The family of this 82-nucleotide sequence from Lathyrus oleraceus is "Small nucleolar RNA R160". It scores 61 bits against the family's covariance model. The literature on the family includes a 2003 paper in Nucleic Acids Res by Chen et al., "The high diversity of snoRNAs in plants: identification and comparative study of 120 snoRNA genes from Oryza sativa". Lineage of the source: Eukaryota > Viridiplantae > Papilionoideae > Fabeae > Lathyrus. Its family is annotated with nucleolus and RNA processing in the Gene Ontology. Rfam 15.1 lists 799 matches to the family in 221 species. Rfam describes the family as follows. snoR160 is a C/D box small nucleolar RNA, which acts as a methylation guide for 25S ribosomal RNA in plants. snoR160 has been alternatively named snoZ270 in rice. The pairing is the family consensus, mapped onto this sequence.
RNA sequence: AGCGAAAUGAUGAAGAAUUUUUUUUGUCUGAAACUGAUGUAGAAUCUUGUUUCAUACAUGCCUUCAAAGUUCUCUGAUUGCU
Dot-bracket structure: (((((........................................................................)))))